Rfam assigns this 80-nucleotide RNA from Oncorhynchus kisutch to the family "mir-499 microRNA precursor family". The family has 31 seed sequences and 710 matches in Rfam 15.1. The organism belongs to Oncorhynchus, within Eukaryota. It scores 81 bits against the family's covariance model. The family's consensus secondary structure was predicted with RNAalifold. Rfam links the family to the GO terms RISC complex and miRNA-mediated post-transcriptional gene silencing.

RNA sequence: GAGAGGGACGUAGUUAAGACUUGCAGUGAUGUUUCGGUAACUCAGCUCAUGAACAUCACUUUAAGUCUGUGCUACCUCCA
Numbered sequence: 001g002a003g004a005g006g007g008a009c010g011u012a013g014u015u016a017a018g019a020c021u022u023g024c025a026g027u028g029a030u031g032u033u034u035c036g037g038u039a040a041c042u043c044a045g046c047u048c049a050u051g052a053a054c055a056u057c058a059c060u061u062u063a064a065g066u067c068u069g070u071g072c073u074a075c076c077u078c079c080a
Stems, first nucleotide, its partner, number of pairs: 017068007026059009